RNA: Nuclear RNase P
Organism: Geococcyx californianus
RNA sequence: UCCGGGGGAAGCUCACCGCCGAGGCCACGCACGGGGUGCGCGUCACCCAGGCCCCGCCUCGGGGAAGGUCUGAGGGAAGGGCCGCCCGCGGCUCCAGCAGAGCCCCGCCCGCGACGGGCGGGUGAGCCACCAGCAAGGGGGGGCGCCGCGGCGGUCGCUCCCGGGCAGGAGAAGCUGCGUGGGGCGCCCAGAGCGGGACCCCCCGGCGGAUGCUCGUGGCCCCGCGGCGCUUUGAGACAGACUCACGGCCGGCAGCGCUGAGUCCAAUGGGUGAGGUGGGGCAUGGCCCUACAACCCAAUUCAGACUACUCUCCCCCGGA
Numbered sequence: 001u002c003c004g005g006g007g008g009a010a011g012c013u014c015a016c017c018g019c020c021g022a023g024g025c026c027a028c029g030c031a032c033g034g035g036g037u038g039c040g041c042g043u044c045a046c047c048c049a050g051g052c053c054c055c056g057c058c059u060c061g062g063g064g065a066a067g068g069u070c071u072g073a074g075g076g077a078a079g080g081g082c083c084g085c086c087c088g089c090g091g092c093u094c095c096a097g098c099a100g101a102g103c104c105c106c107g108c109c110c111g112c113g114a115c116g117g118g119c120g121g122g123u124g125a126g127c128c129a130c131c132a133g134c135a136a137g138g139g140g141g142g143g144c145g146c147c148g149c150g151g152c153g154g155u156c157g158c159u160c161c162c163g164g165g166c167a168g169g170a171g172a173a174g175c176u177g178c179g180u181g182g183g184g185c186g187c188c189c190a191g192a193g194c195g196g197g198a199c200c201c202c203c204c205g206g207c208g209g210a211u212g213c214u215c216g217u218g219g220c221c222c223c224g225c226g227g228c229g230c231u232u233u234g235a236g237a238c239a240g241a242c243u244c245a246c247g248g249c250c251g252g253c254a255g256c257g258c259u260g261a262g263u264c265c266a267a268u269g270g271g272u273g274a275g276g277u278g279g280g281g282c283a284u285g286g287c288c289c290u291a292c293a294a295c296c297c298a299a300u301u302c303a304g305a306c307u308a309c310u311c312u313c314c315c316c317c318g319g320a
Stems, first nucleotide, its partner, number of pairs: 001320004007314003012275006020061005034048005070304005080250004090104005105121006122246005128240001142231010276292007